[Rfam]
RNA sequence: GCCAUCCUUUUCUUGGGGUAGCGUUAUUGUCCAAUGAACGAGUAGUGAGGGCAGUACUGCUAAUGUCUACAUAACAAGCCCUCAUCAACUAGAGAUUUGCUUUACUUUCAUGCAAUUUUUUGAAAA
Numbered sequence: 001g002c003c004a005u006c007c008u009u010u011u012c013u014u015g016g017g018g019u020a021g022c023g024u025u026a027u028u029g030u031c032c033a034a035u036g037a038a039c040g041a042g043u044a045g046u047g048a049g050g051g052c053a054g055u056a057c058u059g060c061u062a063a064u065g066u067c068u069a070c071a072u073a074a075c076a077a078g079c080c081c082u083c084a085u086c087a088a089c090u091a092g093a094g095a096u097u098u099g100c101u102u103u104a105c106u107u108u109c110a111u112g113c114a115a116u117u118u119u120u121u122g123a124a125a126a
Stems, first nucleotide, its partner, number of pairs: 006018004021060003026055007038046002083112003087108001090104005
Shown here is a 126-nucleotide sequence from Prolemur simus, a member of the family "U4atac minor spliceosomal RNA". The family's consensus secondary structure is taken from published work. NCBI's taxonomy places the organism under Eukaryota, Deuterostomia, Theria, Euarchontoglires, Prolemur. For this family Rfam cites "Evolutionary conservation of minor U12-type spliceosome between plants and humans" (Lorkovic et al., RNA, 2005). By type it is a spliceosomal small nuclear RNA.